[Rfam]
RNA: MIR5298 microRNA precursor family
Organism: Medicago truncatula
RNA sequence: UUAGAUUUUCUUCAUUUUCUUCUGUAAGUUUUCUGGGAUUCUUGUUGUUUAAGAUUGACGGAGAUGAUAUGAAGAUGAAAAAUAGAAAAAA
Numbered sequence: 001u002u003a004g005a006u007u008u009u010c011u012u013c014a015u016u017u018u019c020u021u022c023u024g025u026a027a028g029u030u031u032u033c034u035g036g037g038a039u040u041c042u043u044g045u046u047g048u049u050u051a052a053g054a055u056u057g058a059c060g061g062a063g064a065u066g067a068u069a070u071g072a073a074g075a076u077g078a079a080a081a082a083u084a085g086a087a088a089a090a091a
Base pairs, nucleotide, nucleotide: 006084008082009081011079012078013077014076015075016074017073018072019071037056038055039054040053042051